[Rfam]
RNA sequence: GUGCCUCAAUCUAUUGAGUAAGGAAAUUAUUGGGCCUUGGUAACGCUCGGCAAUGUCCUAAAUUGGGCGAACGUAUUUUUGUAGGGUACAGGUCGUCCCCUCGAGUCGCUCGCCUACUUUGCAAGUGGUUCGGGUGAAGCGAUCUGCCCU
Dot-bracket structure: ...(((.(..........).)))..........(((..(......)..)))..(((((......))))).............(((((..(((((((..((..(((((.((.((.......)).)).))))).))....))))))))))))

Record summary
The record is a 150-nucleotide sequence from Galleria mellonella, which matches "U12 minor spliceosomal RNA" in Rfam. The literature on the family includes a 1997 paper in Trends Biochem Sci by Tarn and Steitz, "Pre-mRNA splicing: the discovery of a new spliceosome doubles the challenge". By type it is a spliceosomal small nuclear RNA. NCBI's taxonomy places the organism under Eukaryota, Metazoa, Lepidoptera, Obtectomera, Galleria. It scores 97 bits against the family's covariance model.